[Rfam]
Rfam assigns this 362-nucleotide part of an RNA from Desertihabitans brevis to the family "Bacterial large subunit ribosomal RNA".
A search with the family's covariance model found it, with a score of 2761 bits.
RNA sequence: CGAGAUAAUCGUGGUUAAGGAACUCGGCAAAAUGCCCCCGUAACUUCGGGAUAAGGGGGACCUGAUGCGUGUAGACCUUCACGGUCGAAGCGUUGAGGGUCGCAGAGACCAGGCCCAAGCGACUGUUUACCAAAAACACAGGUCCGUGCGAAGUCGAAAGACGAUGUAUACGGACUGACUCCUGCCCGGUGCUGGAAGGUUACGGGGAAGGGUUAGCACGCAAGUGCGAAGCUCUGAACUUAAGCCCCAGUAAACGGCGGUGGUAACUAUAACCAUCCUAAGGUAGCGAAAUUCCUUGUCGGGUAAGUUCCGACCUGCACGAAUGGAGUAACGACUUGGGCGCUGUCUCAACCACGAACUCG
Numbered sequence: 001c002g003a004g005a006u007a008a009u010c011g012u013g014g015u016u017a018a019g020g021a022a023c024u025c026g027g028c029a030a031a032a033u034g035c036c037c038c039c040g041u042a043a044c045u046u047c048g049g050g051a052u053a054a055g056g057g058g059g060a061c062c063u064g065a066u067g068c069g070u071g072u073a074g075a076c077c078u079u080c081a082c083g084g085u086c087g088a089a090g091c092g093u094u095g096a097g098g099g100u101c102g103c104a105g106a107g108a109c110c111a112g113g114c115c116c117a118a119g120c121g122a123c124u125g126u127u128u129a130c131c132a133a134a135a136a137c138a139c140a141g142g143u144c145c146g147u148g149c150g151a152a153g154u155c156g157a158a159a160g161a162c163g164a165u166g167u168a169u170a171c172g173g174a175c176u177g178a179c180u181c182c183u184g185c186c187c188g189g190u191g192c193u194g195g196a197a198g199g200u201u202a203c204g205g206g207g208a209a210g211g212g213u214u215a216g217c218a219c220g221c222a223a224g225u226g227c228g229a230a231g232c233u234c235u236g237a238a239c240u241u242a243a244g245c246c247c248c249a250g251u252a253a254a255c256g257g258c259g260g261u262g263g264u265a266a267c268u269a270u271a272a273c274c275a276u277c278c279u280a281a282g283g284u285a286g287c288g289a290a291a292u293u294c295c296u297u298g299u300c301g302g303g304u305a306a307g308u309u310c311c312g313a314c315c316u317g318c319a320c321g322a323a324u325g326g327a328g329u330a331a332c333g334a335c336u337u338g339g340g341c342g343c344u345g346u347c348u349c350a351a352c353c354a355c356g357a358a359c360u361c362g
Base pairs, nucleotide, nucleotide: 001362002361003360004359009357010356011355012354013353014352015351016350018348019347020346035059036058037057038056039055044049060100061099062098063097068083069082070081071080073078101105113341114340115339116338117337118336119335120333121332124138125137126136141176142175143174144173145172146171147170148169149166153162154161155160179328180327181326182325184258185257186256189255190254191251192250193249194248195247198246199245200244204240205239209235210234211233212232213231216227217226218225219224259277260276261275262274263273264272278282288315298314299313300312301311302310303309